[Rfam]
RNA sequence: UAUAUAGUUUUCUAGGGUUCCGCAGUUUAUAUUUGGUCAGGUCUAAAAGAAAACACAAUUAAUUGUGUACACGGAAGGAUAAAAGCCUGGGAGAU
Numbered sequence: 001u002a003u004a005u006a007g008u009u010u011u012c013u014a015g016g017g018u019u020c021c022g023c024a025g026u027u028u029a030u031a032u033u034u035g036g037u038c039a040g041g042u043c044u045a046a047a048a049g050a051a052a053a054c055a056c057a058a059u060u061a062a063u064u065g066u067g068u069a070c071a072c073g074g075a076a077g078g079a080u081a082a083a084a085g086c087c088u089g090g091g092a093g094a095u
Base pairs, nucleotide, nucleotide: 007054008053009052010051011050012049015044016043020041021040022038023035024034025033027031055068056067057066058063070090072093076088077087078086
RNA: Guanidine-I riboswitch aptamer
Organism: Clostridiales bacterium oral taxon 876